[Rfam]
RNA sequence: AUACCUUAAGCUAAAGAGUAAGGAAAAUAACGAUUUAGGAUGACGCGUGGGUCCUCACAGCCAAUGUGAGAGAAAUUUUUGAAUGGGUACAAUCAUCCCUAUGGUGACUCACCUACUUAGCAGGGUGCCUGGCUGUUUUCUAA
Numbered sequence: 001a002u003a004c005c006u007u008a009a010g011c012u013a014a015a016g017a018g019u020a021a022g023g024a025a026a027a028u029a030a031c032g033a034u035u036u037a038g039g040a041u042g043a044c045g046c047g048u049g050g051g052u053c054c055u056c057a058c059a060g061c062c063a064a065u066g067u068g069a070g071a072g073a074a075a076u077u078u079u080u081g082a083a084u085g086g087g088u089a090c091a092a093u094c095a096u097c098c099c100u101a102u103g104g105u106g107a108c109u110c111a112c113c114u115a116c117u118u119a120g121c122a123g124g125g126u127g128c129c130u131g132g133c134u135g136u137u138u139u140c141u142a143a
Base pairs, nucleotide, nucleotide: 004023005022006021007020008019032053033052034051035050036049037048039046054070055069056068057067058066084143086141087140091138092137094135095134097132103129104128105127106126108124109123112120
RNA: U12 minor spliceosomal RNA
Organism: Salvator merianae